This 85-nucleotide RNA sequence from Allobosea sp. WAO belongs to the Rfam family "chrB-a RNA". It scores 61 bits against the family's covariance model.
[Rfam]
RNA sequence: CCGCAGGGGUUCAUUCGCGACGACCCCGUGAGGCGUCAGCCCAAGGAUCGCGUCCAGUCUCCUAGCUUCCAGGAGGGACGCCAUG
Numbered sequence: 001c002c003g004c005a006g007g008g009g010u011u012c013a014u015u016c017g018c019g020a021c022g023a024c025c026c027c028g029u030g031a032g033g034c035g036u037c038a039g040c041c042c043a044a045g046g047a048u049c050g051c052g053u054c055c056a057g058u059c060u061c062c063u064a065g066c067u068u069c070c071a072g073g074a075g076g077g078a079c080g081c082c083a084u085g
Base pairs, nucleotide, nucleotide: 006027007026008025009024010023050081051080052079053078054077055076